[Rfam]
RNA: U7 small nuclear RNA
RNA sequence: AGCUAUUAAAGCUCUUUUAAAAAUUUUCUAGCAGGUGUUCAGACUUAGGUUGGAAAACCCAA
Number, nucleotide and partner (000 for none) at each position: 001a000002g000003c000004u000005a000006u000007u000008a000009a000010a000011g000012c000013u000014c000015u000016u000017u000018u000019a000020a000021a000022a000023a000024u000025u000026u000027u000028c000029u000030a000031g000032c000033a000034g059035g058036u057037g000038u055039u054040c053041a000042g051043a050044c049045u000046u000047a000048g000049g044050u043051u042052g000053g040054a039055a038056a000057a036058c035059c034060c000061a000062a000